[Rfam]
RNA sequence: UUCGGCCUCGCACUGUUUCUUUCAGUGCCCCCUGCACGCCGUCGCCGACGCACCCCAAUUCGAAUUAGUACGCGAUCCUGUCGCCUUCUCUGCGGCGCGGC
Numbered sequence: 001u002u003c004g005g006c007c008u009c010g011c012a013c014u015g016u017u018u019c020u021u022u023c024a025g026u027g028c029c030c031c032c033u034g035c036a037c038g039c040c041g042u043c044g045c046c047g048a049c050g051c052a053c054c055c056c057a058a059u060u061c062g063a064a065u066u067a068g069u070a071c072g073c074g075a076u077c078c079u080g081u082c083g084c085c086u087u088c089u090c091u092g093c094g095g096c097g098c099g100g101c
Stems, first nucleotide, its partner, number of pairs: 010028006038101004043097005072084005
RNA: Pseudomon-Rho RNA
Organism: Pseudomonas sp. SDI